The record is a 155-nucleotide sequence from Populus tomentosa, which matches "MIR2912 microRNA precursor family" in Rfam. The match comes from Rfam's covariance-model search (116 bits).

[Rfam]
RNA sequence: UCUAGAACUCAAGAUAUGGGCUAAACACUGAACAGUCUCUAAGUUGUAAGACAUAUUCUGACUUCUCCGUUGUUGCUAAGAUUUGGACUUUCGAAAAGCAGAAUUCGGUCUUGAACUCCCAUGAUUAUUUUAAGCCUAUGUCUUAGCUUUCCAUC
Numbered sequence: 001u002c003u004a005g006a007a008c009u010c011a012a013g014a015u016a017u018g019g020g021c022u023a024a025a026c027a028c029u030g031a032a033c034a035g036u037c038u039c040u041a042a043g044u045u046g047u048a049a050g051a052c053a054u055a056u057u058c059u060g061a062c063u064u065c066u067c068c069g070u071u072g073u074u075g076c077u078a079a080g081a082u083u084u085g086g087a088c089u090u091u092c093g094a095a096a097a098g099c100a101g102a103a104u105u106c107g108g109u110c111u112u113g114a115a116c117u118c119c120c121a122u123g124a125u126u127a128u129u130u131u132a133a134g135c136c137u138a139u140g141u142c143u144u145a146g147c148u149u150u151c152c153a154u155c
Base pairs, nucleotide, nucleotide: 003153005151006150007149008146009145011144012143013142014141015140016139017138018137019136020135022132023131024130025129027128035122036121042117043116045114048112049111050110051109052108055104056103057102058101059100060099062098063097069091072088073087074086